[Rfam]
RNA sequence: GGCACUUGAAUGAAGGCCUUGCAGCAAACCUACUUGGUAUGCAUGGCCGGAUGUACCGUGUC
Number, nucleotide and partner (000 for none) at each position: 001g062002g061003c060004a059005c058006u000007u000008g000009a000010a000011u000012g000013a000014a000015g048016g047017c046018c045019u000020u043021g042022c041023a040024g000025c000026a000027a000028a000029c000030c037031u036032a000033c000034u000035u000036g031037g030038u000039a000040u023041g022042c021043a020044u000045g018046g017047c016048c015049g000050g000051a000052u000053g000054u000055a000056c000057c000058g005059u004060g003061u002062c001

This 62-nucleotide sequence from Branchiostoma floridae belongs to the Rfam family "Selenocysteine insertion sequence 1". Pairs were carried over by alignment from the consensus structure, which is taken from published work.